[Rfam]
About this RNA:
The record is an 85-nucleotide RNA from Bacillus cereus, which matches "c-di-GMP-I riboswitch aptamer" in Rfam. Its family is annotated with cyclic-di-GMP binding in the Gene Ontology. Rfam's curators put it in the seed alignment. The organism belongs to Bacillus cereus, within Bacteria.
RNA sequence: CAGCGAGAAAGGCAAACUGGUGGAAACAUUAGGACGCAAAACUACAGGAGCUAAGGCCGAAAGGCUACGCUAGCCAGUUACCGGA
Number, nucleotide and partner (000 for none) at each position: 001c000002a000003g000004c000005g000006a000007g000008a000009a000010a000011g000012g037013c036014a000015a000016a000017c032018u031019g030020g029021u028022g027023g000024a000025a000026a000027c022028a021029u020030u019031a018032g017033g000034a000035c000036g013037c012038a000039a000040a079041a078042c077043u076044a000045c000046a000047g075048g074049a071050g070051c069052u000053a000054a000055g000056g065057c064058c063059g000060a000061a000062a000063g058064g057065c056066u000067a000068c000069g051070c050071u049072a000073g000074c048075c047076a043077g042078u041079u040080a000081c000082c000083g000084g000085a000